The record is a 158-nucleotide RNA sequence from Allonocardiopsis opalescens, which matches "FMN riboswitch aptamer (RFN element)" in Rfam. It scores 67 bits against the family's covariance model. Lineage of the source: Bacteria > Actinomycetota > Actinomycetes > Streptosporangiales > Allonocardiopsis. Rfam links the family to the GO term FMN binding.
RNA sequence: CUGUGCUCCGUGACUCGGUGCAAGUCCGAACCGGCGGUACGCGCGGCGCCCGGCCUGCGGGCGGCGCGCACAGUCCGCGACCCGGCCGAAGCCAUCGGCCGGUGAAUCCGGCGAAAUUCCGGAACCGACGGUGAAAGUCCGGAUGGGAGGCGGCACGG
Number, nucleotide and partner (000 for none) at each position: 001c000002u000003g156004u155005g154006c153007u152008c150009c149010g000011u000012g000013a000014c000015u000016c028017g027018g026019u000020g000021c000022a000023a000024g000025u000026c018027c017028g016029a000030a138031c137032c127033g126034g078035c077036g076037g075038u000039a000040c000041g000042c000043g000044c000045g000046g000047c000048g000049c000050c000051c000052g000053g000054c000055c000056u000057g000058c000059g000060g000061g000062c000063g000064g000065c000066g000067c000068g000069c000070a000071c000072a000073g000074u000075c037076c036077g035078c034079g000080a000081c000082c102083c101084g000085g000086c000087c000088g000089a000090a000091g000092c000093c000094a000095u000096c000097g000098g000099c000100c000101g083102g082103u000104g000105a000106a000107u123108c122109c121110g120111g119112c000113g000114a000115a000116a000117u000118u000119c111120c110121g109122g108123a107124a000125c000126c033127g032128a000129c141130g140131g139132u000133g000134a000135a000136a000137g031138u030139c131140c130141g129142g000143a000144u000145g000146g000147g000148a000149g009150g008151c000152g007153g006154c005155a004156c003157g000158g000